[Rfam]
RNA sequence: CGUUAGAGCAGCAUAAAUAUUCGUAUAAUUCCGGGAAUCGGCCCGGAAGUCUCUACGAGGUCACCGUAAUGACCUGGCUACGAUUAAGAAGAGCAAGGCC
Numbered sequence: 001c002g003u004u005a006g007a008g009c010a011g012c013a014u015a016a017a018u019a020u021u022c023g024u025a026u027a028a029u030u031c032c033g034g035g036a037a038u039c040g041g042c043c044c045g046g047a048a049g050u051c052u053c054u055a056c057g058a059g060g061u062c063a064c065c066g067u068a069a070u071g072a073c074c075u076g077g078c079u080a081c082g083a084u085u086a087a088g089a090a091g092a093g094c095a096a097g098g099c100c
Stems, first nucleotide, its partner, number of pairs: 018086002021083005029048007058075006
RNA: Purine riboswitch aptamer